Mammalian CPEB3 ribozyme: a 75-nucleotide sequence from Alligator sinensis. Rfam links the family to the GO term RNA nuclease activity.
[Rfam]
RNA sequence: UCAUAAGUUCAAGGUCAUUGCAGAAGUGCUCACAGUGCAGCCCUGUUAGAUUUCAGCUAAUCUGUGAAUUUUGCU
Numbered sequence: 001u002c003a004u005a006a007g008u009u010c011a012a013g014g015u016c017a018u019u020g021c022a023g024a025a026g027u028g029c030u031c032a033c034a035g036u037g038c039a040g041c042c043c044u045g046u047u048a049g050a051u052u053u054c055a056g057c058u059a060a061u062c063u064g065u066g067a068a069u070u071u072u073g074c075u
Stems, first nucleotide, its partner, number of pairs: 013042003020074006026038003047064006